[Rfam]
tRNA: a 72-nucleotide sequence from Dictyostelium discoideum. A reference for the family is Hou (1993), "The tertiary structure of tRNA and the development of the genetic code", Trends Biochem Sci.
RNA sequence: GCCGUGAUAGUAUAGUGGUAGUACAUCAGAUUGUGGCUCUGUUGACCCUUGGUUCGAUUCCAGGUCGCGGCA
Numbered sequence: 001g002c003c004g005u006g007a008u009a010g011u012a013u014a015g016u017g018g019u020a021g022u023a024c025a026u027c028a029g030a031u032u033g034u035g036g037c038u039c040u041g042u043u044g045a046c047c048c049u050u051g052g053u054u055c056g057a058u059u060c061c062a063g064g065u066c067g068c069g070g071c072a
Base pairs, nucleotide, nucleotide: 001071002070003069004068005067006066007065010024011023012022013021027041028040029039030038048064049063050062051061052060

Rfam classes the family as a transfer RNA. The sequence is in the family's curated seed alignment.